ROOL RNA: a 600-nucleotide RNA. About the family: Firmicutes, Fusobacteria (1 example), Tenericutes (1 example).

RNA sequence: UAUUUGAAUCAUGUCUAUUAUUAACUCAGUGAAUAAAGCGUGUCAACGCUCUGAGAUGCACAGUAGUUUCUGUUUGGUUAGAUAGGGAUACCUGUUUAAUUAGGCAGUUAUAGUAUAGUGAUAUAUUAUAGGGAGAUGGAAACCAUCAACAAAAAUGUGUGUUGCCAAGAGUUGUCGCUGCAAAAUGCACGGAACUUUCGGGCGUAACAAUAGACGUUUCCUGUGGAAAAAUAAGCCUAAGGGGUUAUGGUGUGGCAGCCAUAAUGACAGAGGUAGGCCAACAAUACGCUCCGUCUUGAAGCAGAAGAAAUUCUGCUAUAACGAAAGUCGUCGGUUAAAGUAGCCGUAUGACGGGUGAGAAAUUUAUCUAUUUAACAAUUUUAAUAGUUUUGGUAAGUAAAUUUAUCUGAAUAAACGGUGAAAUUUAUGAGUAAACAGUCUCAUACGGGUUUAUGUAUACGAUAUGGCUCAACUUAUUGUAAUACUGGGGUAAGAAGUUAGGGGUCGCUCCCCGAAGCUCAGACUUAUCUUCCUGGUGGCAGAAUAUUGUAAGAAGACAAUGGAGGUAGGGUGAAGACCCAAUAAUAGGUAUGAUUCAGA
Numbered sequence: 001u002a003u004u005u006g007a008a009u010c011a012u013g014u015c016u017a018u019u020a021u022u023a024a025c026u027c028a029g030u031g032a033a034u035a036a037a038g039c040g041u042g043u044c045a046a047c048g049c050u051c052u053g054a055g056a057u058g059c060a061c062a063g064u065a066g067u068u069u070c071u072g073u074u075u076g077g078u079u080a081g082a083u084a085g086g087g088a089u090a091c092c093u094g095u096u097u098a099a100u101u102a103g104g105c106a107g108u109u110a111u112a113g114u115a116u117a118g119u120g121a122u123a124u125a126u127u128a129u130a131g132g133g134a135g136a137u138g139g140a141a142a143c144c145a146u147c148a149a150c151a152a153a154a155a156u157g158u159g160u161g162u163u164g165c166c167a168a169g170a171g172u173u174g175u176c177g178c179u180g181c182a183a184a185a186u187g188c189a190c191g192g193a194a195c196u197u198u199c200g201g202g203c204g205u206a207a208c209a210a211u212a213g214a215c216g217u218u219u220c221c222u223g224u225g226g227a228a229a230a231a232u233a234a235g236c237c238u239a240a241g242g243g244g245u246u247a248u249g250g251u252g253u254g255g256c257a258g259c260c261a262u263a264a265u266g267a268c269a270g271a272g273g274u275a276g277g278c279c280a281a282c283a284a285u286a287c288g289c290u291c292c293g294u295c296u297u298g299a300a301g302c303a304g305a306a307g308a309a310a311u312u313c314u315g316c317u318a319u320a321a322c323g324a325a326a327g328u329c330g331u332c333g334g335u336u337a338a339a340g341u342a343g344c345c346g347u348a349u350g351a352c353g354g355g356u357g358a359g360a361a362a363u364u365u366a367u368c369u370a371u372u373u374a375a376c377a378a379u380u381u382u383a384a385u386a387g388u389u390u391u392g393g394u395a396a397g398u399a400a401a402u403u404u405a406u407c408u409g410a411a412u413a414a415a416c417g418g419u420g421a422a423a424u425u426u427a428u429g430a431g432u433a434a435a436c437a438g439u440c441u442c443a444u445a446c447g448g449g450u451u452u453a454u455g456u457a458u459a460c461g462a463u464a465u466g467g468c469u470c471a472a473c474u475u476a477u478u479g480u481a482a483u484a485c486u487g488g489g490g491u492a493a494g495a496a497g498u499u500a501g502g503g504g505u506c507g508c509u510c511c512c513c514g515a516a517g518c519u520c521a522g523a524c525u526u527a528u529c530u531u532c533c534u535g536g537u538g539g540c541a542g543a544a545u546a547u548u549g550u551a552a553g554a555a556g557a558c559a560a561u562g563g564a565g566g567u568a569g570g571g572u573g574a575a576g577a578c579c580c581a582a583u584a585a586u587a588g589g590u591a592u593g594a595u596u597c598a599g600a
Base pairs, nucleotide, nucleotide: 008596015589016588019585022582025055026054027053028052029051038049039048040047041046057161058160059159060158061157062156071106072105073104074103075102076101078099079098080097081096082095083094084093085092086091108131109130110129111128112127113126114125115124116123117122135147136146137145138144139143173560183548190333191332192331194328195327196326197325198324199323200322201290202289203288204287205286206285217229218228219227220226235274236273237272238271244265245264246263247262248261249260250259253280254279255278256277291354292353293352294351295350301316302315303314304313305312337424343419344418345417346416347415406523407522408521409520431441446535447534448533449485487532488531489530490529493526494525497519499516501513502512503511504510569580570579571578572577